RNA sequence: AGUCAAGAGUCUUUGACACCGGAAUGGGUGAGCGGACGUUUUUUGCCUGAAGACAGGUGAAAGAAGAUG
Numbered sequence: 001a002g003u004c005a006a007g008a009g010u011c012u013u014u015g016a017c018a019c020c021g022g023a024a025u026g027g028g029u030g031a032g033c034g035g036a037c038g039u040u041u042u043u044u045g046c047c048u049g050a051a052g053a054c055a056g057g058u059g060a061a062a063g064a065a066g067a068u069g
Stems, first nucleotide, its partner, number of pairs: 010064005017059004025053001030048001032046005
RNA: S-element
Organism: Ensifer sp. M14